[Rfam]
RNA sequence: AAUGACAAAGGCAAACCUGGCGAAAGUCAGGGACGCAAAGCUAUGGGUCGUCCAGUGUGGCUGACGAUUGCCAGGUCGCUAAUU
Numbered sequence: 001a002a003u004g005a006c007a008a009a010g011g012c013a014a015a016c017c018u019g020g021c022g023a024a025a026g027u028c029a030g031g032g033a034c035g036c037a038a039a040g041c042u043a044u045g046g047g048u049c050g051u052c053c054a055g056u057g058u059g060g061c062u063g064a065c066g067a068u069u070g071c072c073a074g075g076u077c078g079c080u081a082a083u084u
Stems, first nucleotide, its partner, number of pairs: 001084001003081002011036002016031006034070001040076003044073003047068006
RNA: c-di-GMP-I-GGC riboswitch aptamer